[Rfam]
RNA sequence: AGUCGUAAUUCCGGCAAACCGGAAGCGUUCUGGACGCGGGUUCGAUUCCCGCCACCUCCACCACUGAGGGGGUGUACUGGUUUCGACAGGGUGACAGAAGGCGCGCAGGCGGCUCGAGAGGCGACGGACGUAAUCCGCGCAAAUCUGUAAACGCCAACGAUGAGCGUUUCGCACUGGCCGCUUAG
Numbered sequence: 001a002g003u004c005g006u007a008a009u010u011c012c013g014g015c016a017a018a019c020c021g022g023a024a025g026c027g028u029u030c031u032g033g034a035c036g037c038g039g040g041u042u043c044g045a046u047u048c049c050c051g052c053c054a055c056c057u058c059c060a061c062c063a064c065u066g067a068g069g070g071g072g073u074g075u076a077c078u079g080g081u082u083u084c085g086a087c088a089g090g091g092u093g094a095c096a097g098a099a100g101g102c103g104c105g106c107a108g109g110c111g112g113c114u115c116g117a118g119a120g121g122c123g124a125c126g127g128a129c130g131u132a133a134u135c136c137g138c139g140c141a142a143a144u145c146u147g148u149a150a151a152c153g154c155c156a157a158c159g160a161u162g163a164g165c166g167u168u169u170c171g172c173a174c175u176g177g178c179c180g181c182u183u184a185g
Base pairs, nucleotide, nucleotide: 001114002113003112004111005110014104015103026093027092028091030089031088032087036052037051038050039049040048053074054073055072056071057070058069059068115130116129
The family of this 185-nucleotide RNA sequence from Candidatus Accumulibacter aalborgensis is "permuted transfer-messenger RNA".
Bacterial tmRNA, also known as 10Sa RNA or SsrA, is named for its dual tRNA and mRNA-like properties. Its role is to liberate the mRNA from a stalled ribosome. To accomplish this part of the tmRNA is used as a reading frame that ends in a translation stop signal. The broken mRNA is replaced in the ribosome by the tmRNA and translation of the tmRNA leads to addition of a proteolysis tag to the incomplete protein enabling recognition by a protease. Recently a number of permuted tmRNA genes have been found encoded in two parts. tmRNAs have been identified in eubacteria and some chloroplasts but are absent from archaeal and eukaryote nuclear genomes.
For this family Rfam cites "Phylogenetic analysis of tmRNA secondary structure" (Williams and Bartel, RNA, 1996).
Rfam classes the family as a non-coding RNA gene.
Lineage of the source: Bacteria > Pseudomonadati > Pseudomonadota > Betaproteobacteria > Candidatus Accumulibacter.
Pairs were carried over by alignment from the consensus structure, which is taken from published work.